The family of this 107-nucleotide RNA sequence is "Glycine riboswitch aptamer". Rfam links the family to the GO term glycine biosynthetic process. Its Rfam clan is "Glycine riboswitch clan". A search with the family's covariance model found it, with a score of 44 bits.
[Rfam]
RNA sequence: CGAUGCCUCUGGAAAGCGGUAAGCAGCCCCGUCGGGGACCGCGUACCCGCCCAUGGGGAAAGGCGUAUCCGCCGAAUCUCUCAGGCACCGACGACAGAGGGAGAGGA
Numbered sequence: 001c002g003a004u005g006c007c008u009c010u011g012g013a014a015a016g017c018g019g020u021a022a023g024c025a026g027c028c029c030c031g032u033c034g035g036g037g038a039c040c041g042c043g044u045a046c047c048c049g050c051c052c053a054u055g056g057g058g059a060a061a062g063g064c065g066u067a068u069c070c071g072c073c074g075a076a077u078c079u080c081u082c083a084g085g086c087a088c089c090g091a092c093g094a095c096a097g098a099g100g101g102a103g104a105g106g107a
Base pairs, nucleotide, nucleotide: 004102006100007099008098009097010096011095018047019046020045021044049086050085051084053081056080057079058078062073063072